[Rfam]
Rfam assigns this 196-nucleotide RNA from Agrilus planipennis to the family "R2 RNA element". Rfam 15.1 lists 3,698 matches to the family in 74 species. This family represents the 3' UTR region of the R2 retrotransposable element. This family is known to interact with the R2-encoded reverse transcriptase in a reaction known as target primed reverse transcription (TPRT). Its family is annotated with regulation of reverse transcription in the Gene Ontology.
RNA sequence: GCUUGGUACCGGGAUUUGUAUAAAUAACCGAUGCUUUCCUCAGUACCAGGGCUGAAGAGGACCUAAGUGGUCGUAAAACGGCCUGAGGUAGAGGGGUUUAGCCAGUAGGUUCGAGGACUUCUUCCUCGGGAAUCCGACACUACCCAUUCGUAUGGACGGCUGGGUGUCUUUUGAAGAUUUCUCCUCUUCAACGAAA
Numbered sequence: 001g002c003u004u005g006g007u008a009c010c011g012g013g014a015u016u017u018g019u020a021u022a023a024a025u026a027a028c029c030g031a032u033g034c035u036u037u038c039c040u041c042a043g044u045a046c047c048a049g050g051g052c053u054g055a056a057g058a059g060g061a062c063c064u065a066a067g068u069g070g071u072c073g074u075a076a077a078a079c080g081g082c083c084u085g086a087g088g089u090a091g092a093g094g095g096g097u098u099u100a101g102c103c104a105g106u107a108g109g110u111u112c113g114a115g116g117a118c119u120u121c122u123u124c125c126u127c128g129g130g131a132a133u134c135c136g137a138c139a140c141u142a143c144c145c146a147u148u149c150g151u152a153u154g155g156a157c158g159g160c161u162g163g164g165u166g167u168c169u170u171u172u173g174a175a176g177a178u179u180u181c182u183c184c185u186c187u188u189c190a191a192c193g194a195a196a
Stems, first nucleotide, its partner, number of pairs: 037061005068195001071194004088189001090187002093183003101138001103136001105134001110130008140166001142165005